[Rfam]
RNA sequence: UCCCCAAUGGGAAGCGAAGACCCUAUGGAGCUUUACUGCACCCUGCCGUUGGGCUGUGGUCCCAGAUGUACAGCGUAGGUAGGAGGCGUCGAAACCCUGCCGCCAGGUAGGGCGGAGCCAAUCAUGGGACACUACCCUUCUGGAACCGCAGCCCUAACUCUGCGAAGAGAACAUCGGUAGGCGGGCAGUUUGGCUGGGGCGGCACGCCCCUGAAAAUAUAUCAGGGGUGCCCAAAGGUCGGCUCAGGCGGGACAGGAAUCCGCCGUAGAGUGUAAAGGCAAAAGCCGGCCUGACGGCGUCCUGCUUGGUAACGGACGUCGAGACGAAAGUCUGGCUUAGCGAACCUCCGUGCCCCCUCAAUAGGGGCCGGAGCUGACAGAAAAGCUACCCUAGGGAUAACAGAGUUGUCUCCGGCAAGAGUCCAUAUCGACCCGGAGGCUUGCUACAUCGAUGUCGGCUCUCUCCAUCCUGGCCGUGCAGCAGCGGCCAAGGGUGAGGUUGUUCGCCUAUUAAAGGAGAUCGUGAGCUGGGUUUAGACCGUCGUGAGACAGGUCGGUUGCUAUCUAUUGGGGGUGCUU
Numbered sequence: 001u002c003c004c005c006a007a008u009g010g011g012a013a014g015c016g017a018a019g020a021c022c023c024u025a026u027g028g029a030g031c032u033u034u035a036c037u038g039c040a041c042c043c044u045g046c047c048g049u050u051g052g053g054c055u056g057u058g059g060u061c062c063c064a065g066a067u068g069u070a071c072a073g074c075g076u077a078g079g080u081a082g083g084a085g086g087c088g089u090c091g092a093a094a095c096c097c098u099g100c101c102g103c104c105a106g107g108u109a110g111g112g113c114g115g116a117g118c119c120a121a122u123c124a125u126g127g128g129a130c131a132c133u134a135c136c137c138u139u140c141u142g143g144a145a146c147c148g149c150a151g152c153c154c155u156a157a158c159u160c161u162g163c164g165a166a167g168a169g170a171a172c173a174u175c176g177g178u179a180g181g182c183g184g185g186c187a188g189u190u191u192g193g194c195u196g197g198g199g200c201g202g203c204a205c206g207c208c209c210c211u212g213a214a215a216a217u218a219u220a221u222c223a224g225g226g227g228u229g230c231c232c233a234a235a236g237g238u239c240g241g242c243u244c245a246g247g248c249g250g251g252a253c254a255g256g257a258a259u260c261c262g263c264c265g266u267a268g269a270g271u272g273u274a275a276a277g278g279c280a281a282a283a284g285c286c287g288g289c290c291u292g293a294c295g296g297c298g299u300c301c302u303g304c305u306u307g308g309u310a311a312c313g314g315a316c317g318u319c320g321a322g323a324c325g326a327a328a329g330u331c332u333g334g335c336u337u338a339g340c341g342a343a344c345c346u347c348c349g350u351g352c353c354c355c356c357u358c359a360a361u362a363g364g365g366g367c368c369g370g371a372g373c374u375g376a377c378a379g380a381a382a383a384g385c386u387a388c389c390c391u392a393g394g395g396a397u398a399a400c401a402g403a404g405u406u407g408u409c410u411c412c413g414g415c416a417a418g419a420g421u422c423c424a425u426a427u428c429g430a431c432c433c434g435g436a437g438g439c440u441u442g443c444u445a446c447a448u449c450g451a452u453g454u455c456g457g458c459u460c461u462c463u464c465c466a467u468c469c470u471g472g473c474c475g476u477g478c479a480g481c482a483g484c485g486g487c488c489a490a491g492g493g494u495g496a497g498g499u500u501g502u503u504c505g506c507c508u509a510u511u512a513a514a515g516g517a518g519a520u521c522g523u524g525a526g527c528u529g530g531g532u533u534u535a536g537a538c539c540g541u542c543g544u545g546a547g548a549c550a551g552g553u554c555g556g557u558u559g560c561u562a563u564c565u566a567u568u569g570g571g572g573g574u575g576c577u578u
Stems, first nucleotide, its partner, number of pairs: 001573008010565003014560002022394004027390002029386005035189004042181007051154010062143005068137001078136005085119003097110005158169004192205001193203003206228006231334002237289006243269002246264006270279002294320008322331001324329001345372005351367005403444003407441001408438007418428002455530001456528004460522001461519005468493002472487005496508004536554004540549003